A member of the RNA family "Ribosomal protein L10 leader" from Gracilibacillus kekensis, 169 nucleotides long.

[Rfam]
RNA sequence: AUAAUUUUAUACAUUAUACCGUAGACAGUAGGUGCUUUAACAAGCUUAAUUUCCUGCCGAGGUGUGUCUGGAUAUAUAACAGAAUCUCUUUUUUUAAAAAAAAGGAAGAACUGUGUGCAGUCAUAAACCUCCAUGUCUAUUAAGAUAUUGGAGGUUUUUGUUUUAUUCG
Number, nucleotide and partner (000 for none) at each position: 001a000002u000003a000004a000005u000006u000007u000008u000009a000010u000011a000012c000013a000014u000015u000016a000017u000018a000019c000020c000021g000022u000023a000024g000025a000026c000027a000028g057029u056030a055031g054032g053033u000034g045035c044036u043037u000038u000039a000040a000041c000042a000043a036044g035045c034046u000047u000048a000049a000050u000051u000052u000053c032054c031055u030056g029057c028058c000059g000060a000061g000062g000063u000064g000065u000066g000067u000068c000069u000070g000071g000072a000073u000074a000075u000076a000077u000078a000079a000080c000081a000082g000083a000084a000085u000086c000087u000088c000089u000090u000091u000092u000093u000094u000095u000096a000097a000098a000099a000100a000101a000102a000103a000104g000105g000106a000107a000108g000109a000110a000111c000112u000113g000114u000115g000116u000117g000118c000119a000120g000121u000122c000123a000124u000125a000126a000127a000128c154129c153130u152131c151132c150133a149134u147135g146136u145137c144138u000139a000140u000141u000142a000143a000144g137145a136146u135147a134148u000149u133150g132151g131152a130153g129154g128155u000156u000157u000158u000159u000160g000161u000162u000163u000164u000165a000166u000167u000168c000169g000
The source organism's lineage runs through Bacteria, Bacillota, Caryophanales, Bacillaceae and Gracilibacillus.